[Rfam]
RNA: Small nucleolar RNA snoR104
Organism: Camellia sinensis
RNA sequence: GGGAAGCAUCACCAAGCUGAGAUGUUUCCUGAUACAAUCUUCCUAGAGAAAACGUCUGUAUUUUCCUACUUGUGGUGGUUUAGUAAGUUCCACAAGUCUCAUUUUACAGAUACAUGA
Numbered sequence: 001g002g003g004a005a006g007c008a009u010c011a012c013c014a015a016g017c018u019g020a021g022a023u024g025u026u027u028c029c030u031g032a033u034a035c036a037a038u039c040u041u042c043c044u045a046g047a048g049a050a051a052a053c054g055u056c057u058g059u060a061u062u063u064u065c066c067u068a069c070u071u072g073u074g075g076u077g078g079u080u081u082a083g084u085a086a087g088u089u090c091c092a093c094a095a096g097u098c099u100c101a102u103u104u105u106a107c108a109g110a111u112a113c114a115u116g117a
Stems, first nucleotide, its partner, number of pairs: 001030003005026006055110003068097008077088001079086001